Rfam assigns this 104-nucleotide sequence from Macaca mulatta to the family "Mitochondrial DNA control region secondary structure A". By type it is an antisense RNA. NCBI's taxonomy places the organism under Eukaryota, Chordata, Dipnotetrapodomorpha, Primates, Macaca.

RNA sequence: GUCUUUUAUGGUAUGCAAGCUUUAAAUGCAACUUAAGUAUUAAACAUUUCAAUAAACUUUUAUGUAAAUCGUGCAUUACUGUUAGCCAACAUGAAUACUAUAUA
Numbered sequence: 001g002u003c004u005u006u007u008a009u010g011g012u013a014u015g016c017a018a019g020c021u022u023u024a025a026a027u028g029c030a031a032c033u034u035a036a037g038u039a040u041u042a043a044a045c046a047u048u049u050c051a052a053u054a055a056a057c058u059u060u061u062a063u064g065u066a067a068a069u070c071g072u073g074c075a076u077u078a079c080u081g082u083u084a085g086c087c088a089a090c091a092u093g094a095a096u097a098c099u100a101u102a103u104a
Stems, first nucleotide, its partner, number of pairs: 005095006011087001015082002018080002022036004027031001037057002040055003062076005
The base pairs follow the family's consensus structure, which is taken from published work.
Rfam's curators put it in the seed alignment.